[Rfam]
RNA sequence: CUGCAAAUAUUCUUGCUGUUCUGGUUUUAUUAUAAUCAAGACAGGCUAAACACUCGCUAUAUAAAAACUAUGCCUGUGUCCUCAGACCUAGAUCUUUCCCUAGGUUUGGUAUCAUAAAUGCUGGUGAUAAAC
Dot-bracket structure: ..((...........(((((.(((((.......))))).)))))...........)).........((((.((........((((((((((........))))))))))..........)))))).......
RNA: Small nucleolar RNA SNORA72